[Rfam]
Source information:
Rfam assigns this 89-nucleotide sequence from Phenylobacterium hankyongense to the family "Glycine riboswitch aptamer". This family represents the bacterial glycine riboswitch.

RNA sequence: CCAACUCUCGCGGGAGAGACCGGAUUCGAUCCGGAGCCGAAGGCGCAACCGCCCCGGAAACGCUCAGGCAAAAGGACCGCGACGGGCUG
Numbered sequence: 001c002c003a004a005c006u007c008u009c010g011c012g013g014g015a016g017a018g019a020c021c022g023g024a025u026u027c028g029a030u031c032c033g034g035a036g037c038c039g040a041a042g043g044c045g046c047a048a049c050c051g052c053c054c055c056g057g058a059a060a061c062g063c064u065c066a067g068g069c070a071a072a073a074g075g076a077c078c079g080c081g082a083c084g085g086g087c088u089g
Base pairs, nucleotide, nucleotide: 006084008082009081010080011079012078013077020034021033022032023031036069037068038067039065040064043063044062045061049057050056